Rfam assigns this 157-nucleotide sequence from Dongibacter bovis to the family "c-di-AMP riboswitch aptamer (ydaO/yuaA leader)". The organism belongs to Dongibacter, within Bacteria. Gene Ontology terms of the family: regulation of gene expression and cyclic-di-AMP binding. The match comes from Rfam's covariance-model search (88 bits).
[Rfam]
RNA sequence: CGAUACAUGAAGCCGAAUCCAGCCCAGGAGCGGGGGAACCAAAAGAUUUUGGGGUGAACGUUUUCGCCGGGGAGCGAUAGCUCAACGGCAAGAGCGCGGGUGGUCUUCUCUACCCGAACCCGGCAGCUAACCUCGUAGGCGAAUAGAGAGAGGAGUG
Numbered sequence: 001c002g003a004u005a006c007a008u009g010a011a012g013c014c015g016a017a018u019c020c021a022g023c024c025c026a027g028g029a030g031c032g033g034g035g036g037a038a039c040c041a042a043a044a045g046a047u048u049u050u051g052g053g054g055u056g057a058a059c060g061u062u063u064u065c066g067c068c069g070g071g072g073a074g075c076g077a078u079a080g081c082u083c084a085a086c087g088g089c090a091a092g093a094g095c096g097c098g099g100g101u102g103g104u105c106u107u108c109u110c111u112a113c114c115c116g117a118a119c120c121c122g123g124c125a126g127c128u129a130a131c132c133u134c135g136u137a138g139g140c141g142a143a144u145a146g147a148g149a150g151a152g153g154a155g156u157g
Stems, first nucleotide, its partner, number of pairs: 012140003018029003030136006040051002052121003060095004098115004